[Rfam]
RNA sequence: CGUUUUAUGGUAUAAUAUACGAGAUAGUAAAGGUUUAUGACGGUGGCUAAUCUCUGAAAAAGGGGUGAUUGCCUAUGUUGAUUUUUGGCUAUACUCCUAGAAAGGACUAGCUUUGACUAUUUUUGAAGCGUUAAUGUUUGCGAUUACUUUUGCGACAUUAAUUCUAAAAAUUAGUGAUAAAAA
Numbered sequence: 001c002g003u004u005u006u007a008u009g010g011u012a013u014a015a016u017a018u019a020c021g022a023g024a025u026a027g028u029a030a031a032g033g034u035u036u037a038u039g040a041c042g043g044u045g046g047c048u049a050a051u052c053u054c055u056g057a058a059a060a061a062g063g064g065g066u067g068a069u070u071g072c073c074u075a076u077g078u079u080g081a082u083u084u085u086u087g088g089c090u091a092u093a094c095u096c097c098u099a100g101a102a103a104g105g106a107c108u109a110g111c112u113u114u115g116a117c118u119a120u121u122u123u124u125g126a127a128g129c130g131u132u133a134a135u136g137u138u139u140g141c142g143a144u145u146a147c148u149u150u151u152g153c154g155a156c157a158u159u160a161a162u163u164c165u166a167a168a169a170a171u172u173a174g175u176g177a178u179a180a181a182a183a
Stems, first nucleotide, its partner, number of pairs: 043156002046153002061098007069091001071089002115135001119131002122128001161178003167172001
Rfam assigns this 183-nucleotide RNA from Enterococcus faecalis to the family "Listeria sRNA rli28". Pairs were carried over by alignment from the consensus structure, which was predicted with RNAalifold. NCBI's taxonomy places the organism under Bacteria, Bacillati, Bacillota, Enterococcaceae, Enterococcus faecalis.